[Rfam]
RNA sequence: AAUGGGGUGAAAGUCCCCUGACCCCAAUUGUCUGUUCGGGGGUCUAGCAGGAGGUCAAGUUAACGAAGUGAUUCGGUGGCUCAAGUGACCUUGAACGAUAGAUGCCAAAUAGCGGGCUGCAACAACA
Number, nucleotide and partner (000 for none) at each position: 001a000002a000003u000004g000005g000006g000007g000008u000009g000010a000011a000012a000013g000014u000015c000016c000017c000018c000019u000020g044021a043022c042023c041024c040025c000026a000027a000028u000029u000030g000031u000032c000033u000034g000035u000036u000037c000038g000039g000040g024041g023042g022043u021044c020045u000046a000047g000048c000049a000050g000051g000052a091053g090054g089055u088056c087057a000058a081059g080060u079061u078062a077063a000064c000065g000066a073067a072068g000069u000070g000071a000072u067073u066074c000075g000076g000077u062078g061079g060080c059081u058082c000083a000084a000085g000086u000087g056088a055089c054090c053091u052092u000093g000094a000095a000096c000097g000098a000099u000100a000101g000102a000103u000104g120105c119106c000107a000108a000109a000110u000111a000112g000113c000114g000115g000116g000117c000118u000119g105120c104121a000122a000123c000124a000125a000126c000127a000

Shown here is a 127-nucleotide RNA sequence from Pleurocapsales cyanobacterium LEGE 06147, a member of the family "Group II catalytic intron D1-D4-4". A search with the family's covariance model found it, with a score of 51 bits. Pairs were carried over by alignment from the consensus structure. On this family, see Lehmann and Schmidt, Crit Rev Biochem Mol Biol 2003: "Group II introns: structure and catalytic versatility of large natural ribozymes". The family has 90 seed sequences and 840 matches in Rfam 15.1. Gene Ontology term of the family: Group II intron splicing.